[Rfam]
RNA: Small nucleolar RNA Z112
Organism: Miscanthus lutarioriparius
RNA sequence: GUCCCUGUGAGGAUGUCAAGACCUACCGAUAGGAAGUGCCGUUUGACACUGUAAACAGCAGCUGCUUCACUCAGCUGCAGGUGGUCCAUCCUUAACCUUUGUGGUUUGGUCUGGCUGGAGCUCCCAUCUGUAUCUGUUUGUUUCAGCUGUGGUGUGUGAUUUAAAUCGGGUCUCUGAGGGAU
Numbered sequence: 001g002u003c004c005c006u007g008u009g010a011g012g013a014u015g016u017c018a019a020g021a022c023c024u025a026c027c028g029a030u031a032g033g034a035a036g037u038g039c040c041g042u043u044u045g046a047c048a049c050u051g052u053a054a055a056c057a058g059c060a061g062c063u064g065c066u067u068c069a070c071u072c073a074g075c076u077g078c079a080g081g082u083g084g085u086c087c088a089u090c091c092u093u094a095a096c097c098u099u100u101g102u103g104g105u106u107u108g109g110u111c112u113g114g115c116u117g118g119a120g121c122u123c124c125c126a127u128c129u130g131u132a133u134c135u136g137u138u139u140g141u142u143u144c145a146g147c148u149g150u151g152g153u154g155u156g157u158g159a160u161u162u163a164a165a166u167c168g169g170g171u172c173u174c175u176g177a178g179g180g181a182u
Base pairs, nucleotide, nucleotide: 001182002181003180004179005178076132077131078130079129080128081127082126083125085119086118087117088116090114091113094106095105096104097103